[Rfam]
RNA sequence: AUCGAACUUCGGGGCGGGGCGAAAUUCCCCACCGGCGGUGACUCUGUUACUCGACAGACAGCCCGCGAGCGCCUUAAAACACAGAUUUUAAGGGUCUAGCAGAUCUGGUGAGAUUCCAGAGCCGACGGUUACAGUCCGGAUGAAAGAAGAUCGAC
Numbered sequence: 001a002u003c004g005a006a007c008u009u010c011g012g013g014g015c016g017g018g019g020c021g022a023a024a025u026u027c028c029c030c031a032c033c034g035g036c037g038g039u040g041a042c043u044c045u046g047u048u049a050c051u052c053g054a055c056a057g058a059c060a061g062c063c064c065g066c067g068a069g070c071g072c073c074u075u076a077a078a079a080c081a082c083a084g085a086u087u088u089u090a091a092g093g094g095u096c097u098a099g100c101a102g103a104u105c106u107g108g109u110g111a112g113a114u115u116c117c118a119g120a121g122c123c124g125a126c127g128g129u130u131a132c133a134g135u136c137c138g139g140a141u142g143a144a145a146g147a148a149g150a151u152c153g154a155c
Stems, first nucleotide, its partner, number of pairs: 003153003007149004017029003031135002033124002035066004061122002069100002104120005126138003
The record is a 155-nucleotide RNA sequence from Celerinatantimonas diazotrophica, which matches "FMN riboswitch aptamer (RFN element)" in Rfam. The family's consensus secondary structure is taken from published work. The match comes from Rfam's covariance-model search (115 bits). Lineage of the source: Bacteria > Pseudomonadota > Gammaproteobacteria > Celerinatantimonadaceae > Celerinatantimonas. Rfam describes the family as follows. The RFN element is a highly conserved domain that is found frequently in the 5'-untranslated regions of prokaryotic mRNAs that encode for flavin mononucleotide (FMN) biosynthesis and transport proteins.